RNA sequence: AGGUGAUGUCUACUUACCUGUAUCAAUGGAGACACUCGACCGUGCUGUGGGUUACAAAACCUUAGACGCUAGUCGUCAAAAGUGUGGUGUGAGGAUAGGUUAGAUGCCUA
Dot-bracket structure: [[[[..(((((.(..]]]]........).)))))((((((((((((..(((((....)))))..((((.....))))...)))))))).))))..(((((.....)))))
Numbered sequence: 001a002g003g004u005g006a007u008g009u010c011u012a013c014u015u016a017c018c019u020g021u022a023u024c025a026a027u028g029g030a031g032a033c034a035c036u037c038g039a040c041c042g043u044g045c046u047g048u049g050g051g052u053u054a055c056a057a058a059a060c061c062u063u064a065g066a067c068g069c070u071a072g073u074c075g076u077c078a079a080a081a082g083u084g085u086g087g088u089g090u091g092a093g094g095a096u097a098g099g100u101u102a103g104a105u106g107c108c109u110a
Stems, first nucleotide, its partner, number of pairs: 001019004007034005013028001035093004039088008049062005065077004096110005

Shown here is a 110-nucleotide RNA from Priestia veravalensis, a member of the family "epsC RNA".
NCBI's taxonomy places the organism under Bacteria, Bacillati, Bacilli, Caryophanales, Priestia.
It scores 107 bits against the family's covariance model.